RNA sequence: GCAAGCGCUUGGCAAACCUGCCGGAAGGCAGGGGCGCAAAGUUAACAGCCUGAUGAUAACUAAUGGUGGCGAGUCUGCGACA
Numbered sequence: 001g002c003a004a005g006c007g008c009u010u011g012g013c014a015a016a017c018c019u020g021c022c023g024g025a026a027g028g029c030a031g032g033g034g035c036g037c038a039a040a041g042u043u044a045a046c047a048g049c050c051u052g053a054u055g056a057u058a059a060c061u062a063a064u065g066g067u068g069g070c071g072a073g074u075c076u077g078c079g080a081c082a
Base pairs, nucleotide, nucleotide: 012037013036017032018031019030020029021028022027040076041075043073046071048067049066050065055061
Dot-bracket structure: ...........((...((((((....))))))...))..((.(..(.(((....(.....)...)))...).).))......